Background:
6S / SsrS RNA: a 183-nucleotide sequence from Alteromonas australica. The family has 150 seed sequences and 5,006 matches in Rfam 15.1. It is annotated as a non-coding RNA gene. The match comes from Rfam's covariance-model search (97 bits). Rfam describes the family as follows. E. coli 6S RNA was the first non coding RNA to be sequenced, but its function was unknown until recently.
RNA sequence: UGUCUCCUGGGAUGUACGCCAGUUCAUUCAUGUCCCUGGCCGAUGCUUUAAAACUAGGAAGUUGAAACGAUGGCUAUUGUGCAAGCUCGGCGCGUAUCGAGAAGCCUACGGCUAUUGUGAUUCUUCCGCCCUGAACUUUUCGGUUCACGGGCGAACGAUGAACAGCGGCAUUCUGGGAGACGC
Numbered sequence: 001u002g003u004c005u006c007c008u009g010g011g012a013u014g015u016a017c018g019c020c021a022g023u024u025c026a027u028u029c030a031u032g033u034c035c036c037u038g039g040c041c042g043a044u045g046c047u048u049u050a051a052a053a054c055u056a057g058g059a060a061g062u063u064g065a066a067a068c069g070a071u072g073g074c075u076a077u078u079g080u081g082c083a084a085g086c087u088c089g090g091c092g093c094g095u096a097u098c099g100a101g102a103a104g105c106c107u108a109c110g111g112c113u114a115u116u117g118u119g120a121u122u123c124u125u126c127c128g129c130c131c132u133g134a135a136c137u138u139u140u141c142g143g144u145u146c147a148c149g150g151g152c153g154a155a156c157g158a159u160g161a162a163c164a165g166c167g168g169c170a171u172u173c174u175g176g177g178a179g180a181c182g183c
Stems, first nucleotide, its partner, number of pairs: 002181014017167003032152004037147003040143002057127003061123001066118001068117008081105002086101005